Shown here is a 168-nucleotide RNA from Falsibacillus pallidus, a member of the family "Group II catalytic intron D1-D4-3". NCBI's taxonomy places the organism under Bacteria, Bacillota, Caryophanales, Bacillaceae, Falsibacillus. Pairs were carried over by alignment from the consensus structure.
RNA sequence: UUGUCUGUGAGGAAAUGUGCGGAGGACUUGAAGGCAAAACCUGGAACAGGCGACAAUUCAACCAUGUUGGCUGGCAGAGUCGGAUAACCCUGCAAAAGAAGGGAACGUCCAGUACCACAUCUGGAUUCUGUUAGUUAGGAGGGCUGGAUUCAGGGGAAAGCCCGAUGA
Numbered sequence: 001u002u003g004u005c006u007g008u009g010a011g012g013a014a015a016u017g018u019g020c021g022g023a024g025g026a027c028u029u030g031a032a033g034g035c036a037a038a039a040c041c042u043g044g045a046a047c048a049g050g051c052g053a054c055a056a057u058u059c060a061a062c063c064a065u066g067u068u069g070g071c072u073g074g075c076a077g078a079g080u081c082g083g084a085u086a087a088c089c090c091u092g093c094a095a096a097a098g099a100a101g102g103g104a105a106c107g108u109c110c111a112g113u114a115c116c117a118c119a120u121c122u123g124g125a126u127u128c129u130g131u132u133a134g135u136u137a138g139g140a141g142g143g144c145u146g147g148a149u150u151c152a153g154g155g156g157a158a159a160g161c162c163c164g165a166u167g168a
Stems, first nucleotide, its partner, number of pairs: 002015001004013003028168003034161002040154005047146003062142002065139001070135003074131007082110004088103004